[Rfam]
RNA: Small nucleolar RNA snR60/Z15/Z230/Z193/J17
Organism: Verticillium alfalfae
RNA sequence: UGGUUUCAUGAUGAUCCCACCAAUUACGCAUAGUUCACCUGAAUCUUUGUGAUGAGACUGCAUAUGUUAUAGUCUUUCGCUCCCAUCUGAUGUUACAA
Numbered sequence: 001u002g003g004u005u006u007c008a009u010g011a012u013g014a015u016c017c018c019a020c021c022a023a024u025u026a027c028g029c030a031u032a033g034u035u036c037a038c039c040u041g042a043a044u045c046u047u048u049g050u051g052a053u054g055a056g057a058c059u060g061c062a063u064a065u066g067u068u069a070u071a072g073u074c075u076u077u078c079g080c081u082c083c084c085a086u087c088u089g090a091u092g093u094u095a096c097a098a
Base pairs, nucleotide, nucleotide: 001095002094003093004092